[Rfam]
RNA sequence: UCCUCAUAAAGAGAGGCGGAGGGACUGGCCCGAUGAACCCUCGGCAACCGGCCGCGCGGCUUGGUGCCAAAUCCAGAGAACAGUCACUGUUCGAAUAUGAGGA
Number, nucleotide and partner (000 for none) at each position: 001u103002c102003c101004u100005c099006a098007u097008a096009a000010a000011g000012a000013g042014a041015g040016g039017c000018g000019g000020a000021g031022g030023g029024a000025c076026u075027g074028g073029c023030c022031c021032g000033a000034u000035g000036a000037a000038c000039c016040c015041u014042c013043g068044g067045c066046a065047a000048c064049c063050g060051g000052c058053c000054g000055c000056g000057c000058g052059g000060c050061u000062u000063g049064g048065u046066g045067c044068c043069a000070a000071a000072u095073c028074c027075a026076g025077a000078g092079a091080a090081c089082a088083g000084u000085c000086a000087c000088u082089g081090u080091u079092c078093g000094a000095a072096u008097a007098u006099g005100a004101g003102g002103a001
Rfam assigns this 103-nucleotide RNA sequence from Thermoactinomyces sp. AS95 to the family "SAM riboswitch aptamer (S box leader)". Lineage of the source: Bacteria > Bacilli > Caryophanales > Thermoactinomycetaceae > Thermoactinomyces.